U2 spliceosomal RNA: a 193-nucleotide RNA sequence from Trichoderma reesei.
For this family Rfam cites "A conserved pseudouridine modification in eukaryotic U2 snRNA induces a change in branch-site architecture" (Newby and Greenbaum, RNA, 2001).
It is annotated as a spliceosomal small nuclear RNA.
The sequence is in the family's curated seed alignment.
U2 is a small nuclear RNA (snRNA) component of the spliceosome (involved in pre-mRNA splicing).
The family's consensus secondary structure is taken from published work.
Nucleotides: 193
Base pairs, nucleotide, nucleotide: 008027009026010025013022014021015020048067049066050065051064052063053062068083069082070081071080072079073078113148114147115146116145117144118143126137127136128135129134151186152185153184154183155182156181157179158178159177160176161175
Number, partner (000 for none) and nucleotide at each position: 001000u002000u003000a004000g005000c006000u007000c008027u009026c010025u011000u012000u013022g014021c015020c016000u017000u018000u019000u020015g021014g022013c023000u024000u025010a026009g027008a028000u029000c030000a031000a032000g033000u034000g035000u036000a037000g038000u039000a040000u041000c042000u043000g044000u045000u046000c047000u048067u049066u050065u051064c052063a053062g054000u055000u056000u057000a058000a059000u060000c061000u062053c063052u064051g065050a066049a067048a068083g069082g070081u071080c072079c073078c074000c075000a076000a077000g078073g079072g080071g081070a082069c083068c084000a085000a086000u087000c088000g089000u090000g091000a092000u093000u094000a095000u096000u097000c098000u099000u100000a101000u102000u103000u104000u105000u106000g107000c108000a109000c110000c111000u112000c113148g114147a115146g116145c117144a118143g119000u120000u121000u122000c123000c124000u125000c126137u127136g128135c129134g130000c131000u132000u133000g134129c135128g136127c137126a138000u139000g140000a141000u142000c143118c144117u145116g146115c147114u148113c149000a150000c151186u152185g153184u154183g155182u156181c157179c158178c159177u160176g161175g162000u163000a164000u165000u166000a167000c168000a169000c170000u171000g172000c173000c174000u175161c176160c177159a178158g179157g180000c181156g182155a183154c184153g185152c186151g187000a188000c189000c190000c191000u192000u193000u